[Rfam]
The family of this 202-nucleotide RNA sequence is "Cyano-2 RNA". It is one of the family's seed sequences.

RNA sequence: GACGGCCUCGGAAGAGCGAUCCGAGAGCUGGCAGAACCCCUGUCUCCUGCGUGAGCGAUCGUGGGAGACACAGUUCUGUGCAACGGAUUCCGAAAAGACUUGGUGGGUUCGCCAAGAAGCUUUUAGCGCGGCGAAUUUGGUUGUCCCGAUGGUGGCAUCGCUUGGGAGGGACAGCGUCCUUCUCGCGACCUCAGCAGCCCCC
Numbered sequence: 001g002a003c004g005g006c007c008u009c010g011g012a013a014g015a016g017c018g019a020u021c022c023g024a025g026a027g028c029u030g031g032c033a034g035a036a037c038c039c040c041u042g043u044c045u046c047c048u049g050c051g052u053g054a055g056c057g058a059u060c061g062u063g064g065g066a067g068a069c070a071c072a073g074u075u076c077u078g079u080g081c082a083a084c085g086g087a088u089u090c091c092g093a094a095a096a097g098a099c100u101u102g103g104u105g106g107g108u109u110c111g112c113c114a115a116g117a118a119g120c121u122u123u124u125a126g127c128g129c130g131g132c133g134a135a136u137u138u139g140g141u142u143g144u145c146c147c148g149a150u151g152g153u154g155g156c157a158u159c160g161c162u163u164g165g166g167a168g169g170g171a172c173a174g175c176g177u178c179c180u181u182c183u184c185g186c187g188a189c190c191u192c193a194g195c196a197g198c199c200c201c202c
Stems, first nucleotide, its partner, number of pairs: 003030004007025006031079007041070011146194001148192002152189002155186002164184008